[Rfam]
RNA sequence: CGGGCACUGCCUCGUGCGAGCUUAUAUUUCCCUGAGGCGAUUCACUCUCCUAGGGGGCUGUCUCUGGGCGGAUCUUGGUCCGCACUAAAUGGCUCCCACCUGAUGUACUUGGCAUCAGAGGAUCUCACGAGCAAACGGCUAUGGCGGUCCCGCC
Numbered sequence: 001c002g003g004g005c006a007c008u009g010c011c012u013c014g015u016g017c018g019a020g021c022u023u024a025u026a027u028u029u030c031c032c033u034g035a036g037g038c039g040a041u042u043c044a045c046u047c048u049c050c051u052a053g054g055g056g057g058c059u060g061u062c063u064c065u066g067g068g069c070g071g072a073u074c075u076u077g078g079u080c081c082g083c084a085c086u087a088a089a090u091g092g093c094u095c096c097c098a099c100c101u102g103a104u105g106u107a108c109u110u111g112g113c114a115u116c117a118g119a120g121g122a123u124c125u126c127a128c129g130a131g132c133a134a135a136c137g138g139c140u141a142u143g144g145c146g147g148u149c150c151c152g153c154c
Stems, first nucleotide, its partner, number of pairs: 003151002006148006012141001014139002017137002029122003032118004037113002053097003057093005066085001068083005
Dot-bracket structure: ..((.(((((((.((.((..........(((((((.((..............(((.(((((....(.(((((......))))).)...))))).)))..............)).)))).))).............)))).).)))))).))...
RNA: 6S / SsrS RNA
Organism: Glacieibacterium frigidum